Rfam assigns this 177-nucleotide sequence from Ceratopteris richardii to the family "Small nucleolar RNA ZL1". Lineage of the source: Eukaryota > Viridiplantae > Embryophyta > Tracheophyta > Ceratopteris. Host gene TRRAP. Predicted target U2@U47. Only GU-rich region is homologous to other known snoRNAs. Conserved in vertebrates. The base pairs follow the family's consensus structure, which was predicted with RNAfold. Gene Ontology terms of the family: nucleolus and RNA processing. Rfam 15.1 lists 300 matches to the family in 287 species. On this family, see Kishore et al., Genome Biol 2013: "Insights into snoRNA biogenesis and processing from PAR-CLIP of snoRNA core proteins and small RNA sequencing".

RNA sequence: AUGUAUGCAUAUGCAUGUGCAUUCAUGCAUGUAUGCAUUUGUAUGCAUGCAUGCAUUUGUAUGCAUGCAUGCAUGCAUGUGUAUGCAUGCAUGUAUGCAUGUGUAUGCAUGCAUGUAUGCAUGUGUAUGCAUGCAUGUAUGCAUGUGUAUGCAUGCAUGUAUGUAUGUGUAUGCAUU
Numbered sequence: 001a002u003g004u005a006u007g008c009a010u011a012u013g014c015a016u017g018u019g020c021a022u023u024c025a026u027g028c029a030u031g032u033a034u035g036c037a038u039u040u041g042u043a044u045g046c047a048u049g050c051a052u053g054c055a056u057u058u059g060u061a062u063g064c065a066u067g068c069a070u071g072c073a074u075g076c077a078u079g080u081g082u083a084u085g086c087a088u089g090c091a092u093g094u095a096u097g098c099a100u101g102u103g104u105a106u107g108c109a110u111g112c113a114u115g116u117a118u119g120c121a122u123g124u125g126u127a128u129g130c131a132u133g134c135a136u137g138u139a140u141g142c143a144u145g146u147g148u149a150u151g152c153a154u155g156c157a158u159g160u161a162u163g164u165a166u167g168u169g170u171a172u173g174c175a176u177u
Base pairs, nucleotide, nucleotide: 005176006175007174008173009172010171014167015166016165026157027156028155029154030153031152034105035104036103037102041098043096044095045094046093047092048091049090050089051088052087053086054085057083063076064075065074066073067072107120108119109118110117123140124139125138126137127136128135142151143150144149